[Rfam]
RNA sequence: AAUCCCUAUGAAGAAUCAUAUGAAAAAUUAAAAGUAGUGGACUGAAUUUCUAUUUGAUGAGCAAUGGAUUCUGAGGGAUG
Dot-bracket structure: .(((((....................................................................))))).